[Rfam]
RNA sequence: GAUGAAUUUAUUUCAAUCCAUUAACUUAUUUUUUAUGUGGUGGAUGGAUUGAAUGAAUUUUUUG
Numbered sequence: 001g002a003u004g005a006a007u008u009u010a011u012u013u014c015a016a017u018c019c020a021u022u023a024a025c026u027u028a029u030u031u032u033u034u035a036u037g038u039g040g041u042g043g044a045u046g047g048a049u050u051g052a053a054u055g056a057a058u059u060u061u062u063u064g
Stems, first nucleotide, its partner, number of pairs: 004060005012053011025039001027037003

A member of the RNA family "MIR5291 microRNA precursor family" from Lathyrus oleraceus, 64 nucleotides long. NCBI's taxonomy places the organism under Eukaryota, eudicotyledons, Papilionoideae, Fabeae, Lathyrus. A search with the family's covariance model found it, with a score of 56 bits. The family has 3 seed sequences and 168 matches in Rfam 15.1. The family's consensus secondary structure was predicted with RNAalifold. Rfam links the family to the GO terms miRNA-mediated post-transcriptional gene silencing and RISC complex.